[Rfam]
The record is a 37-nucleotide RNA, which matches "abiF RNA" in Rfam. Pairs were carried over by alignment from the consensus structure, which is taken from published work. The family's RNA type in Rfam is small RNA. The sequence is in the family's curated seed alignment.

RNA sequence: CCUGCCAAGCCUCUCAACGAUGCUCAAAUAGGCUGGC
Numbered sequence: 001c002c003u004g005c006c007a008a009g010c011c012u013c014u015c016a017a018c019g020a021u022g023c024u025c026a027a028a029u030a031g032g033c034u035g036g037c
Stems, first nucleotide, its partner, number of pairs: 001036002004033003008024003

Record summary
About the family: Actinobacteria, Bacteroidetes, Clostridia, Proteobacteria, one Clostridia phage.